[Rfam]
RNA sequence: GCCGGCUUAGCUCAGUUGGUAGAGCAUCGGUAUCGUAAACCGAGGGUCGGGUGUUCAAGUCGCCUAGCCGGCA
Numbered sequence: 001g002c003c004g005g006c007u008u009a010g011c012u013c014a015g016u017u018g019g020u021a022g023a024g025c026a027u028c029g030g031u032a033u034c035g036u037a038a039a040c041c042g043a044g045g046g047u048c049g050g051g052u053g054u055u056c057a058a059g060u061c062g063c064c065u066a067g068c069c070g071g072c073a
Base pairs, nucleotide, nucleotide: 001072002071003070004069005068006067007066010025011024012023013022027043028042029041030040031039049065050064051063052062053061
RNA: tRNA